[Rfam]
RNA sequence: GGCACAUCGAUGCUUCAUGACAGGAGCGGGGGACCCAGGUCUUCCGGGCACCGGUCACGGUGCCCUUGGGGUGAAGCCGGUCGCACGCCGACCGGCCGGGCACAGCUCUCCGUCCGAACCCGACAGCUCACCUCGCAGGCGACCGGAGAGGUUCU
Numbered sequence: 001g002g003c004a005c006a007u008c009g010a011u012g013c014u015u016c017a018u019g020a021c022a023g024g025a026g027c028g029g030g031g032g033a034c035c036c037a038g039g040u041c042u043u044c045c046g047g048g049c050a051c052c053g054g055u056c057a058c059g060g061u062g063c064c065c066u067u068g069g070g071g072u073g074a075a076g077c078c079g080g081u082c083g084c085a086c087g088c089c090g091a092c093c094g095g096c097c098g099g100g101c102a103c104a105g106c107u108c109u110c111c112g113u114c115c116g117a118a119c120c121c122g123a124c125a126g127c128u129c130a131c132c133u134c135g136c137a138g139g140c141g142a143c144c145g146g147a148g149a150g151g152u153u154c155u
Base pairs, nucleotide, nucleotide: 008141009140011138015025016024026136027135028134029133030132031131036068037067038066039065069121070120071119077095078094079093080092098115099114100113101112

The record is a 155-nucleotide RNA sequence from Cellulomonas fimi, which matches "c-di-AMP riboswitch aptamer (ydaO/yuaA leader)" in Rfam.
The organism belongs to Cellulomonas, within Bacteria.
Rfam describes the family as follows. This family represents a conserved RNA structure found upstream of the ydaO and yuaA genes in Bacillus subtilis and related genes in other bacteria.